[Rfam]
RNA sequence: CAGAGAAGUCGAUGAUGGUUUACCUACAUGUCUGAACCUGUCUGAUGCACCUCAGUGAUGUCAUCUCUGUGUGGUUCUGAGACUUCUCUGACG
Numbered sequence: 001c002a003g004a005g006a007a008g009u010c011g012a013u014g015a016u017g018g019u020u021u022a023c024c025u026a027c028a029u030g031u032c033u034g035a036a037c038c039u040g041u042c043u044g045a046u047g048c049a050c051c052u053c054a055g056u057g058a059u060g061u062c063a064u065c066u067c068u069g070u071g072u073g074g075u076u077c078u079g080a081g082a083c084u085u086c087u088c089u090g091a092c093g
Stems, first nucleotide, its partner, number of pairs: 004087007
This 93-nucleotide RNA from Moschus moschiferus belongs to the Rfam family "Small nucleolar RNA SNORD91 family". For this family Rfam cites "RNomics: an experimental approach that identifies 201 candidates for novel, small, non-messenger RNAs in mouse" (Huttenhofer et al., EMBO J, 2001). The family has 24 seed sequences and 977 matches in Rfam 15.1.